[Rfam]
A member of the RNA family "Bacillus sRNA ncr1575" from Rummeliibacillus sp. TYF005, 203 nucleotides long. The family's consensus secondary structure is taken from published work.
RNA sequence: ACAAAUAUUACAGAAGGGACGAUGGGUGGACGAUGAUUCUAUAAUCUUAUUUUUUAUUUAUUGGAAUGCCAUAUUUCAAUUUCAAAAAAUAGGAUUAGUCUGCCCAUUUUCUUUAUAUACACAAAGCUAUUGUUUUUGAAUAGCUCGUUUUAAAUCGGCGCAAAAUGACUAGUCCUUCCAAAAAUUUUUGGGGGGAUUUUUUA
Numbered sequence: 001a002c003a004a005a006u007a008u009u010a011c012a013g014a015a016g017g018g019a020c021g022a023u024g025g026g027u028g029g030a031c032g033a034u035g036a037u038u039c040u041a042u043a044a045u046c047u048u049a050u051u052u053u054u055u056a057u058u059u060a061u062u063g064g065a066a067u068g069c070c071a072u073a074u075u076u077c078a079a080u081u082u083c084a085a086a087a088a089a090u091a092g093g094a095u096u097a098g099u100c101u102g103c104c105c106a107u108u109u110u111c112u113u114u115a116u117a118u119a120c121a122c123a124a125a126g127c128u129a130u131u132g133u134u135u136u137u138g139a140a141u142a143g144c145u146c147g148u149u150u151u152a153a154a155u156c157g158g159c160g161c162a163a164a165a166u167g168a169c170u171a172g173u174c175c176u177u178c179c180a181a182a183a184a185u186u187u188u189u190g191g192g193g194g195g196a197u198u199u200u201u202u203a
Stems, first nucleotide, its partner, number of pairs: 016112004023106004029100003042097013060080008119151001121149001126144006171198011